[Rfam]
RNA sequence: AUUCCUGAUGAUGUUGCUAAACUUUCGUUCUACUGACACUUCUGUGUGGAAGAACAUUCAACUGAAGGAUG
Numbered sequence: 001a002u003u004c005c006u007g008a009u010g011a012u013g014u015u016g017c018u019a020a021a022c023u024u025u026c027g028u029u030c031u032a033c034u035g036a037c038a039c040u041u042c043u044g045u046g047u048g049g050a051a052g053a054a055c056a057u058u059c060a061a062c063u064g065a066a067g068g069a070u071g
Base pairs, nucleotide, nucleotide: 003069004068005067006066

Rfam assigns this 71-nucleotide sequence from Branchiostoma lanceolatum to the family "Small nucleolar RNA Z159/U59". The family's consensus secondary structure was predicted with PFOLD. It scores 40 bits against the family's covariance model. Its family is annotated with nucleolus and RNA processing in the Gene Ontology. Clan: SNORD59 clan.